Rfam assigns this 211-nucleotide RNA sequence from Salmo salar to the family "Small nucleolar RNA U3". NCBI's taxonomy places the organism under Eukaryota, Metazoa, Actinopteri, Euteleosteomorpha, Salmo. Its family is annotated with nucleolus and RNA processing in the Gene Ontology. The match comes from Rfam's covariance-model search (110 bits). Its Rfam clan is "U3 clan". Rfam's curators write: Small nucleolar RNAs (snoRNAs) are involved in the processing and modification of rRNA in the nucleolus. There are two main classes of snoRNAs: the box C/D class, and the box H/ACA class. Rfam classes the family as a C/D-box small nucleolar RNA.
RNA sequence: CUAUACUUUCAGGGAUCAUUUCUAUAGUUCGUUACUUGAGAAAUUGUGUCUAAAUUGGUAGGUCUCGCUAUCCAUGAUGACGAUUGAAGAUAUUCCCGUUCAGAGCAUGAAUCUGGUGGCUAGAUAUGACUUUGCUCAUGUUUCUUCCACCUUUGAUGGUCUUUCCUUGUUCUUCAAUGAACAUGGAUGAAGGGAAUAUGUUCUCAGUGGA
Numbered sequence: 001c002u003a004u005a006c007u008u009u010c011a012g013g014g015a016u017c018a019u020u021u022c023u024a025u026a027g028u029u030c031g032u033u034a035c036u037u038g039a040g041a042a043a044u045u046g047u048g049u050c051u052a053a054a055u056u057g058g059u060a061g062g063u064c065u066c067g068c069u070a071u072c073c074a075u076g077a078u079g080a081c082g083a084u085u086g087a088a089g090a091u092a093u094u095c096c097c098g099u100u101c102a103g104a105g106c107a108u109g110a111a112u113c114u115g116g117u118g119g120c121u122a123g124a125u126a127u128g129a130c131u132u133u134g135c136u137c138a139u140g141u142u143u144c145u146u147c148c149a150c151c152u153u154u155g156a157u158g159g160u161c162u163u164u165c166c167u168u169g170u171u172c173u174u175c176a177a178u179g180a181a182c183a184u185g186g187a188u189g190a191a192g193g194g195a196a197u198a199u200g201u202u203c204u205c206a207g208u209g210g211a
Base pairs, nucleotide, nucleotide: 002031005028006027007026011023012022013021014020045060046059047058049057071211072210073209074208075207090199091198092197093196094195095194096193097192099191100190101189102188105163115151116150117149118148123143124142125140126139127138128137129136166185168183169182170181171180172179